The family of this 90-nucleotide RNA sequence from Aleadryas rufinucha is "mir-1684 microRNA precursor family". It scores 61 bits against the family's covariance model. Its family is annotated with RISC complex and miRNA-mediated post-transcriptional gene silencing in the Gene Ontology. Rfam 15.1 lists 120 matches to the family in 27 species.
RNA sequence: AGGUUGGGUCUCACAGCCCUGUUCCCCCAUGCUCAGCCCUCCCCAUGGGGAGGGCUGAGCAUGGGGGAACAGGGCUGUGAGACCCAACCU
Numbered sequence: 001a002g003g004u005u006g007g008g009u010c011u012c013a014c015a016g017c018c019c020u021g022u023u024c025c026c027c028c029a030u031g032c033u034c035a036g037c038c039c040u041c042c043c044c045a046u047g048g049g050g051a052g053g054g055c056u057g058a059g060c061a062u063g064g065g066g067g068a069a070c071a072g073g074g075c076u077g078u079g080a081g082a083c084c085c086a087a088c089c090u
Base pairs, nucleotide, nucleotide: 002089003088006085007084009082010081011080012079013078014077015076016075017074018073019072020071021070023068024067025066026065027064028063029062030061031060032059034057035056037054038053039052040051041050042049043048